[Rfam]
RNA: Acido-Lenti-1 RNA
Organism: Urbifossiella limnaea
RNA sequence: CCCAGGGCUUCCGCCCCGGGCUAACGAAGGCCGCCCCUCCGGGGCU
Numbered sequence: 001c002c003c004a005g006g007g008c009u010u011c012c013g014c015c016c017c018g019g020g021c022u023a024a025c026g027a028a029g030g031c032c033g034c035c036c037c038u039c040c041g042g043g044g045c046u
Stems, first nucleotide, its partner, number of pairs: 001020003005016004033045005